[Rfam]
Overview
A member of the RNA family "ZMP/ZTP riboswitch aptamer (pfl RNA motif)" from Caballeronia glathei, 82 nucleotides long. The family's consensus secondary structure is taken from published work.

RNA sequence: ACCGGUUCACGUGACUGGCGCCGCGAGAUGGACCACCAUCGGGGAGCGUGAACUUCAAUCGCCGCGCGCCUGGGCAUUUCAU
Numbered sequence: 001a002c003c004g005g006u007u008c009a010c011g012u013g014a015c016u017g018g019c020g021c022c023g024c025g026a027g028a029u030g031g032a033c034c035a036c037c038a039u040c041g042g043g044g045a046g047c048g049u050g051a052a053c054u055u056c057a058a059u060c061g062c063c064g065c066g067c068g069c070c071u072g073g074g075c076a077u078u079u080c081a082u
Stems, first nucleotide, its partner, number of pairs: 004054009015043002017070005028039004061075003
On this family, see Tran et al., Cell Chem Biol 2020: "Parallel Discovery Strategies Provide a Basis for Riboswitch Ligand Design".